RNA: mir-130 microRNA precursor family
Organism: Hucho hucho
RNA sequence: AAUUGCCCUCUAUUCCCUACAUAGUGCACUACUGUGGGCCCUUGUCAAAAGCAGUGCACUGUAUAGGGAAUAGGGUGCCAUUU
Numbered sequence: 001a002a003u004u005g006c007c008c009u010c011u012a013u014u015c016c017c018u019a020c021a022u023a024g025u026g027c028a029c030u031a032c033u034g035u036g037g038g039c040c041c042u043u044g045u046c047a048a049a050a051g052c053a054g055u056g057c058a059c060u061g062u063a064u065a066g067g068g069a070a071u072a073g074g075g076u077g078c079c080a081u082u083u
Stems, first nucleotide, its partner, number of pairs: 001083002005078002008075003012071008022061009